[Rfam]
Rfam assigns this 134-nucleotide RNA sequence from Dendrobium catenatum to the family "MIR390 microRNA precursor family".
A reference for the family is Xie et al. (2005), "Expression of Arabidopsis MIRNA genes", Plant Physiol.
Rfam links the family to the GO terms RISC complex and miRNA-mediated post-transcriptional gene silencing.
The family has 16 seed sequences and 649 matches in Rfam 15.1.
The organism belongs to Dendrobium, within Eukaryota.

RNA sequence: UGGGAGACCCAUUAAAGCUCAGGAGGGAUAGCGCCAUGGAUCAUUAGAGAGCUGAUUAGCUCUUCAUUCAUUUGAGCCUUUUCUCUCAAUUUUUCCUGUGACGCUAUCUAUCCUGAGUUUUAUAGGUUCUUCUU
Numbered sequence: 001u002g003g004g005a006g007a008c009c010c011a012u013u014a015a016a017g018c019u020c021a022g023g024a025g026g027g028a029u030a031g032c033g034c035c036a037u038g039g040a041u042c043a044u045u046a047g048a049g050a051g052c053u054g055a056u057u058a059g060c061u062c063u064u065c066a067u068u069c070a071u072u073u074g075a076g077c078c079u080u081u082u083c084u085c086u087c088a089a090u091u092u093u094u095c096c097u098g099u100g101a102c103g104c105u106a107u108c109u110a111u112c113c114u115g116a117g118u119u120u121u122a123u124a125g126g127u128u129c130u131u132c133u134u
Base pairs, nucleotide, nucleotide: 010125016119017118018117019116020115021114022113023112024111026109027108028107029106030105031104032103033102035100036099037098038097039096